A member of the RNA family "5' ureB small RNA" from Synechococcus sp. WH 7805, 287 nucleotides long.
Rfam 15.1 lists 4,812 matches to the family in 4,480 species.
The family's consensus secondary structure was predicted with mfold.
It scores 152 bits against the family's covariance model.
NCBI's taxonomy places the organism under Bacteria, Bacillati, Cyanobacteriota, Synechococcales, Synechococcus.
The literature on the family includes a 2013 paper in J Bacteriol by Wen et al., "Helicobacter pylori 5'ureB-sRNA, a cis-encoded antisense small RNA, negatively regulates ureAB expression by transcription termination".
RNA sequence: CGGUUUCGAUCUGCUGCGGACAAAUGAAAUGGAUGUGGGUGUCGAUGCCCCCGGCCGUGAGGAUGUGUCCUUCCCCGGCGAUCGCUUCGGUGCCCGGGCCCACCACGAUCGUCACCCCGGCCUGGGUGUCGGGGUUCCCGGCUUUGCCGAUGCCGACGAUGCGGCCGUCCUUCAGACCAACAUCGGCUUUGACGAUGCCCCACCAGUCGAGGAUCAGGGCAUUGGUGAUCACUGUGUCGACGGCACCGCCGGCUCGAGGGGUCUGGGACUGGCCCAUGCCGUCGCGG
Numbered sequence: 001c002g003g004u005u006u007c008g009a010u011c012u013g014c015u016g017c018g019g020a021c022a023a024a025u026g027a028a029a030u031g032g033a034u035g036u037g038g039g040u041g042u043c044g045a046u047g048c049c050c051c052c053g054g055c056c057g058u059g060a061g062g063a064u065g066u067g068u069c070c071u072u073c074c075c076c077g078g079c080g081a082u083c084g085c086u087u088c089g090g091u092g093c094c095c096g097g098g099c100c101c102a103c104c105a106c107g108a109u110c111g112u113c114a115c116c117c118c119g120g121c122c123u124g125g126g127u128g129u130c131g132g133g134g135u136u137c138c139c140g141g142c143u144u145u146g147c148c149g150a151u152g153c154c155g156a157c158g159a160u161g162c163g164g165c166c167g168u169c170c171u172u173c174a175g176a177c178c179a180a181c182a183u184c185g186g187c188u189u190u191g192a193c194g195a196u197g198c199c200c201c202a203c204c205a206g207u208c209g210a211g212g213a214u215c216a217g218g219g220c221a222u223u224g225g226u227g228a229u230c231a232c233u234g235u236g237u238c239g240a241c242g243g244c245a246c247c248g249c250c251g252g253c254u255c256g257a258g259g260g261g262u263c264u265g266g267g268a269c270u271g272g273c274c275c276a277u278g279c280c281g282u283c284g285c286g287g
Stems, first nucleotide, its partner, number of pairs: 001287001003285001007284003012158002015155002018076002022072002030053003035049001037048001039046002057069001077148002081144001085140001089138002092135004097130003104124002107121001109119001111117001164273004171267006177260002186220006200209001223257001225255001230248001234246003